[Rfam]
RNA sequence: UUUUCAUUUACCACACUCUCUCGCCGGUUAGAGAGACGAGAGAGUGUGGGAAAUGGAGAGA
Numbered sequence: 001u002u003u004u005c006a007u008u009u010a011c012c013a014c015a016c017u018c019u020c021u022c023g024c025c026g027g028u029u030a031g032a033g034a035g036a037c038g039a040g041a042g043a044g045u046g047u048g049g050g051a052a053a054u055g056g057a058g059a060g061a
Stems, first nucleotide, its partner, number of pairs: 001059007012048006019041004
The record is a 61-nucleotide RNA from Pristionchus pacificus, which matches "mir-8364 microRNA precursor family" in Rfam. Taxonomically the source falls in Pristionchus (Eukaryota, Metazoa, Diplogasteroidea, Neodiplogasteridae). The match comes from Rfam's covariance-model search (68 bits). The family's consensus secondary structure was predicted with RNAalifold.